[Rfam]
This 88-nucleotide RNA sequence from Triplophysa rosa belongs to the Rfam family "mir-731 microRNA precursor family". The family's consensus secondary structure was predicted with RNAalifold. The source organism's lineage runs through Eukaryota, Vertebrata, Cypriniphysae, Cypriniformes and Triplophysa.
RNA sequence: UGAUGUUGCUCUGGAAUGACACGUUUUCUCCCGGAUCGCCAGCAAUGUUUCGCCACCGGGAAUUUCGUGUCAACCAAGAUUAACAUUA
Dot-bracket structure: ((((((((.((.....(((((((.....((((((.(.((..(........))).)))))))....))))))).....)).))))))))